The record is a 107-nucleotide RNA sequence from Nocardioides bruguierae, which matches "Glycine riboswitch aptamer" in Rfam.
RNA sequence: UCAUCCCGCGCGGGAGAGCUCCCGCCCCGCACCCGGUGCGUGGGCGGGGCGCCGAAGGGGCAAUCCCUCCCCGGAACCUCUCAGGCACCCAGGACCGCGCAGGUCAG
Numbered sequence: 001u002c003a004u005c006c007c008g009c010g011c012g013g014g015a016g017a018g019c020u021c022c023c024g025c026c027c028c029g030c031a032c033c034c035g036g037u038g039c040g041u042g043g044g045c046g047g048g049g050c051g052c053c054g055a056a057g058g059g060g061c062a063a064u065c066c067c068u069c070c071c072c073g074g075a076a077c078c079u080c081u082c083a084g085g086c087a088c089c090c091a092g093g094a095c096c097g098c099g100c101a102g103g104u105c106a107g
Stems, first nucleotide, its partner, number of pairs: 006102001008100006020049008051086003054082002058080003064074002
Dot-bracket structure: .....(.((((((......((((((((..............)))))))).(((((..(((...((.......))...))))).)))........)))))).).....